[Rfam]
RNA: A. fumigatus sRNA Afu_254
Organism: Aspergillus nidulans
RNA sequence: UUCCUCAACAGCCCAGUCUAUCACCAAUCUUCGAACAAACCAGCACCCACCUAACUAUCUCAAUAUGUCUCCCUGCUCCUGCAACUGCUGCGCUGGUGAUUGCAGCUCCUGCUCGUGCGGUUACUGCAGCGUAAGGUUCC
Dot-bracket structure: .........................................................................((((...(((.....)))...))))...(((......((....))......))).............